[Rfam]
A member of the RNA family "Small nucleolar RNA SNORA25" from Microcebus murinus, 123 nucleotides long.
The base pairs follow the family's consensus structure, which was predicted with RNAfold.
Rfam describes the family as follows. ACA25 is a member of the H/ACA class of snoRNA that guide the sites of modification of uridines to pseudouridines.
Rfam 15.1 lists 1,129 matches to the family in 449 species.
The source organism's lineage runs through Eukaryota, Eumetazoa, Dipnotetrapodomorpha, Tetrapoda and Microcebus.
RNA sequence: UGGUCAUUUCAAAAACUUAUGAGGCUGUGAAACCAAGAACUCUUAACACUAUGACCAAAGAUUGGAGUUCUCCAUAGGUUGCCAUAGUCACUCGAGUGCUAGUUUUCCUGAGGAACCAUAAGA
Numbered sequence: 001u002g003g004u005c006a007u008u009u010c011a012a013a014a015a016c017u018u019a020u021g022a023g024g025c026u027g028u029g030a031a032a033c034c035a036a037g038a039a040c041u042c043u044u045a046a047c048a049c050u051a052u053g054a055c056c057a058a059a060g061a062u063u064g065g066a067g068u069u070c071u072c073c074a075u076a077g078g079u080u081g082c083c084a085u086a087g088u089c090a091c092u093c094g095a096g097u098g099c100u101a102g103u104u105u106u107c108c109u110g111a112g113g114a115a116c117c118a119u120a121a122g123a
Base pairs, nucleotide, nucleotide: 002056003055004054005053006052007051014044015043017038018037020036023034024033071114072113073112076109077108078107085101086100087099089098090097091096